Shown here is a 79-nucleotide RNA sequence from Flavobacterium pallidum, a member of the family "Flavo-1 RNA". By type it is a small RNA.

RNA sequence: ACCCUACCCCGAUGGAAGCGGCAUCCUUUUUCCGGCUGCUGCCAGCCGGAAAAGAUAAAGCCGGAGAGCAGGAUUAGCU
Numbered sequence: 001a002c003c004c005u006a007c008c009c010c011g012a013u014g015g016a017a018g019c020g021g022c023a024u025c026c027u028u029u030u031u032c033c034g035g036c037u038g039c040u041g042c043c044a045g046c047c048g049g050a051a052a053a054g055a056u057a058a059a060g061c062c063g064g065a066g067a068g069c070a071g072g073a074u075u076a077g078c079u
Base pairs, nucleotide, nucleotide: 009071011069013067018061019060023056024055025054029052030051031050032049033048034047035046036045

Lineage of the source: Bacteria > Pseudomonadati > Bacteroidota > Flavobacteriia > Flavobacterium.
A search with the family's covariance model found it, with a score of 44 bits.